RNA sequence: CUUGGUAUUCUUCCACAGCUUUCUUGAACUGCACCUGUUUGAAUAUUGUUGUUGAUGUUGCCGUGCAUGUACAUAUGACAUUGUAUUUUUGUUGCGGUUCAAUAAAGCUGUGGGAAGAUACAAACA
Numbered sequence: 001c002u003u004g005g006u007a008u009u010c011u012u013c014c015a016c017a018g019c020u021u022u023c024u025u026g027a028a029c030u031g032c033a034c035c036u037g038u039u040u041g042a043a044u045a046u047u048g049u050u051g052u053u054g055a056u057g058u059u060g061c062c063g064u065g066c067a068u069g070u071a072c073a074u075a076u077g078a079c080a081u082u083g084u085a086u087u088u089u090u091g092u093u094g095c096g097g098u099u100c101a102a103u104a105a106a107g108c109u110g111u112g113g114g115a116a117g118a119u120a121c122a123a124a125c126a
Base pairs, nucleotide, nucleotide: 003123005121006120007119013113014112015111017109018108019107020106021105022104024102025101026100027099029097030096031095032094033093
RNA: MIR396 microRNA precursor family
Organism: Populus deltoides